[Rfam]
RNA sequence: UUAUCAGUGAGUUUAUCCUUACCUGUUCCUUCCAUUGGGAGAAACAGAAACAUGAUGAAUGGAGGAGGUGAGUGACUGAUUACUCCAAUACUCCAGUCUGUCUGGGAUGACACAGCCAGAUGAGCCAUUCUGAU
Numbered sequence: 001u002u003a004u005c006a007g008u009g010a011g012u013u014u015a016u017c018c019u020u021a022c023c024u025g026u027u028c029c030u031u032c033c034a035u036u037g038g039g040a041g042a043a044a045c046a047g048a049a050a051c052a053u054g055a056u057g058a059a060u061g062g063a064g065g066a067g068g069u070g071a072g073u074g075a076c077u078g079a080u081u082a083c084u085c086c087a088a089u090a091c092u093c094c095a096g097u098c099u100g101u102c103u104g105g106g107a108u109g110a111c112a113c114a115g116c117c118a119g120a121u122g123a124g125c126c127a128u129u130c131u132g133a134u
Stems, first nucleotide, its partner, number of pairs: 023047003027043001029041004070093002073090002077082001097123002100121006
A member of the RNA family "U8 small nucleolar RNA" from Hymenochirus boettgeri, 134 nucleotides long. Taxonomically the source falls in Hymenochirus (Eukaryota, Euteleostomi, Amphibia, Batrachia).